Bacterial RNase P class A: a 363-nucleotide RNA sequence from Chitinophaga parva. The match comes from Rfam's covariance-model search (243 bits).

[Rfam]
RNA sequence: ACUACAAACCGCACUAUCGUCUCUUCGGGGAAGGAAAGUCCGGACAGCGCAGAGCAACGCACCACCUAACGGGUGGGGUGCCGGUGCAAACCGGCACACAGACAGUGCCACAGAAAAUAACCGCCGGGCGGCAACGCCAGGUAAGGGUGAAAAAGUAGGGUAAGGGCCUACAGGCAGUGGUGGUAACAUCAUUGCAGGGUAAACCUUGCGUGCUGAAAUGCCAUGUAUACGGUCGCUUAGGGCUGCUCGUCCAAGACCGAGGGUAGGCAGAUACAGGUAGCGCGUGAGCGUUAUCGCAGAUAAAUGAUAGUGGAUCCUGCGCCCGCAGGAUUACAGAAUCCGGCUUAUAGGUUUGUAGUUUUU
Numbered sequence: 001a002c003u004a005c006a007a008a009c010c011g012c013a014c015u016a017u018c019g020u021c022u023c024u025u026c027g028g029g030g031a032a033g034g035a036a037a038g039u040c041c042g043g044a045c046a047g048c049g050c051a052g053a054g055c056a057a058c059g060c061a062c063c064a065c066c067u068a069a070c071g072g073g074u075g076g077g078g079u080g081c082c083g084g085u086g087c088a089a090a091c092c093g094g095c096a097c098a099c100a101g102a103c104a105g106u107g108c109c110a111c112a113g114a115a116a117a118u119a120a121c122c123g124c125c126g127g128g129c130g131g132c133a134a135c136g137c138c139a140g141g142u143a144a145g146g147g148u149g150a151a152a153a154a155g156u157a158g159g160g161u162a163a164g165g166g167c168c169u170a171c172a173g174g175c176a177g178u179g180g181u182g183g184u185a186a187c188a189u190c191a192u193u194g195c196a197g198g199g200u201a202a203a204c205c206u207u208g209c210g211u212g213c214u215g216a217a218a219u220g221c222c223a224u225g226u227a228u229a230c231g232g233u234c235g236c237u238u239a240g241g242g243c244u245g246c247u248c249g250u251c252c253a254a255g256a257c258c259g260a261g262g263g264u265a266g267g268c269a270g271a272u273a274c275a276g277g278u279a280g281c282g283c284g285u286g287a288g289c290g291u292u293a294u295c296g297c298a299g300a301u302a303a304a305u306g307a308u309a310g311u312g313g314a315u316c317c318u319g320c321g322c323c324c325g326c327a328g329g330a331u332u333a334c335a336g337a338a339u340c341c342g343g344c345u346u347a348u349a350g351g352u353u354u355g356u357a358g359u360u361u362u363u
Stems, first nucleotide, its partner, number of pairs: 001359010011348001012312007020031004036346003040343005045215004052248004057211005062076005077099001078097008100206002105204002107200003121146002123142003127138004155171005174195009219269004230259005240252004276295008